[Rfam]
RNA sequence: ACUGGUGAUUACCACUAGCGAGGUAUAGAGUUCCUACGUAUUCUACCACUGUAGGAACUUCAUACCGUGCUCUUGGGUUCGCCAAU
Dot-bracket structure: ...........(((..((((.(((((.((((((((((.............)))))))))).))))).))))..)))..........